Rfam assigns this 82-nucleotide sequence from Acrobeloides nanus to the family "SmY spliceosomal RNA". Pairs were carried over by alignment from the consensus structure, which is taken from published work. The source organism's lineage runs through Eukaryota, Protostomia, Tylenchina, Cephaloboidea and Acrobeloides. Rfam 15.1 lists 408 matches to the family in 67 species.
RNA sequence: UCUCACGGACAAUUCCCUACAGGGUCUUUUUAUCAAGACCCGGUGCAAAAUUUUUGUGAUACUUUUCUUUAUGAAGAGUAUA
Numbered sequence: 001u002c003u004c005a006c007g008g009a010c011a012a013u014u015c016c017c018u019a020c021a022g023g024g025u026c027u028u029u030u031u032a033u034c035a036a037g038a039c040c041c042g043g044u045g046c047a048a049a050a051u052u053u054u055u056g057u058g059a060u061a062c063u064u065u066u067c068u069u070u071a072u073g074a075a076g077a078g079u080a081u082a
Base pairs, nucleotide, nucleotide: 022041023040024039026037027036028035059081060080061079062078063077064076065075066074067073